[Rfam]
RNA sequence: UGGCUGUCGUGGUCAUAAAGUUAGGAGGUUGCGUUUGAGCCUUGGGCGUCGCUUCACACACCACUUGUUCAUGUGUGCCUCACUCGGAGCUUCGGGUCGUCCAUCGUACUCGUGUGUGUAGACCACGAUCGCUACGGGAUGCUAAGCAAUGGAGAUGACACUUGAGGGAAGCAAUUCUGCAGAGACAUCUCCACCCGGAGUUGGCGGCGUGAGAUUACACCGUGACAAGAUAUGCGAAGUUCCAGGCUUGUCUUGCGACCAACUUUUU
Number, nucleotide and partner (000 for none) at each position: 001u015002g014003g013004c012005u000006g000007u000008c000009g000010u000011g000012g004013u003014c002015a001016u000017a000018a000019a267020g266021u000022u000023a000024g000025g000026a000027g260028g259029u258030u257031g256032c255033g254034u000035u000036u250037g249038a248039g000040c246041c245042u244043u000044g242045g241046g240047c239048g000049u237050c236051g235052c234053u000054u000055c000056a000057c000058a000059c000060a000061c000062c000063a000064c000065u228066u227067g000068u000069u225070c224071a223072u222073g221074u000075g220076u219077g218078c000079c213080u212081c211082a210083c209084u207085c206086g205087g000088a202089g201090c200091u199092u198093c197094g196095g195096g194097u000098c141099g000100u139101c138102c000103a000104u000105c136106g135107u134108a133109c000110u128111c127112g126113u125114g124115u000116g123117u122118g000119u000120a000121g000122a117123c116124c114125a113126c112127g111128a110129u000130c000131g000132c000133u108134a107135c106136g105137g000138g101139a100140u000141g098142c146143u000144a000145a000146g142147c000148a000149a000150u193151g192152g191153a190154g189155a188156u187157g000158a000159c000160a000161c184162u183163u182164g000165a000166g000167g000168g177169a176170a175171g000172c000173a000174a000175u170176u169177c168178u000179g000180c000181a000182g163183a162184g161185a000186c000187a156188u155189c154190u153191c152192c151193a150194c096195c095196c094197g093198g092199a091200g090201u089202u088203g000204g000205c086206g085207g084208c000209g083210u082211g081212a080213g079214a000215u000216u000217a000218c077219a076220c075221c073222g072223u071224g070225a069226c000227a066228a065229g000230a000231u000232a000233u000234g052235c051236g050237a049238a000239g047240u046241u045242c044243c000244a042245g041246g040247c000248u038249u037250g036251u000252c000253u000254u033255g032256c031257g030258a029259c028260c027261a000262a000263c000264u000265u000266u020267u019268u000
Description:
Fungal signal recognition particle RNA: a 268-nucleotide sequence from Exophiala xenobiotica. The family is grouped with related families in Rfam's "SRP clan". The organism belongs to Exophiala, within Eukaryota. Gene Ontology terms of the family: SRP-dependent cotranslational protein targeting to membrane, signal sequence recognition, signal recognition particle, endoplasmic reticulum targeting and signal recognition particle, plasma membrane targeting.